Rfam assigns this 88-nucleotide sequence from Centropus unirufus to the family "mir-204 microRNA precursor family". On this family, see Chen et al., Genes Dev 2005: "The developmental miRNA profiles of zebrafish as determined by small RNA cloning". NCBI's taxonomy places the organism under Eukaryota, Chordata, Euteleostomi, Coelurosauria, Centropus. Rfam links the family to the GO terms RISC complex and miRNA-mediated post-transcriptional gene silencing.
RNA sequence: CAGCCCCCUGUGAGCUUCCCUUUGUCAUCCUAUGCCUGAGCCGUGCCUGGAGGCUGGGAUGGCGCAGGGAGACCCACGGGAGAGACCU
Numbered sequence: 001c002a003g004c005c006c007c008c009u010g011u012g013a014g015c016u017u018c019c020c021u022u023u024g025u026c027a028u029c030c031u032a033u034g035c036c037u038g039a040g041c042c043g044u045g046c047c048u049g050g051a052g053g054c055u056g057g058g059a060u061g062g063c064g065c066a067g068g069g070a071g072a073c074c075c076a077c078g079g080g081a082g083a084g085a086c087c088u
Stems, first nucleotide, its partner, number of pairs: 017070005024063002028059005034054004